Notes: Rfam assigns this 111-nucleotide sequence from Paenibacillus sp. IHBB 10380 to the family "TPP riboswitch aptamer (THI element)". Vitamin B(1) in its active form thiamin pyrophosphate (TPP) is an essential coenzyme that is synthesised by coupling of pyrimidine and thiazole moieties in bacteria. The previously detected thiamin-regulatory element, thi box was extended, resulting in a new, highly conserved RNA secondary structure, the THI element, which is widely distributed in eubacteria and also occurs in some archaea. Analysis of operon structures identified a large number of new candidate thiamin-regulated genes, mostly transporters, in various prokaryotic organisms.
RNA sequence: UCAUAAGUACAGGGGUGCUGGAAUUGGCCGGCUGAGAGUGUGUCCCACAAGACACUGACCCUUAUACCUGAUCUGGAUAAUGCCAGCGUAGGAACUAGCCGAUAUGGUUCA
Numbered sequence: 001u002c003a004u005a006a007g008u009a010c011a012g013g014g015g016u017g018c019u020g021g022a023a024u025u026g027g028c029c030g031g032c033u034g035a036g037a038g039u040g041u042g043u044c045c046c047a048c049a050a051g052a053c054a055c056u057g058a059c060c061c062u063u064a065u066a067c068c069u070g071a072u073c074u075g076g077a078u079a080a081u082g083c084c085a086g087c088g089u090a091g092g093a094a095c096u097a098g099c100c101g102a103u104a105u106g107g108u109u110c111a
Stems, first nucleotide, its partner, number of pairs: 008097002011062004017032005040055004067092004073086004